[Rfam]
RNA sequence: GGAGCCUCGAGCCAAUAAAGACUAAGACCAUUGACUCAAAAUU
Numbered sequence: 001g002g003a004g005c006c007u008c009g010a011g012c013c014a015a016u017a018a019a020g021a022c023u024a025a026g027a028c029c030a031u032u033g034a035c036u037c038a039a040a041a042u043u
Base pairs, nucleotide, nucleotide: 007039009037010036011035013033014032015031016030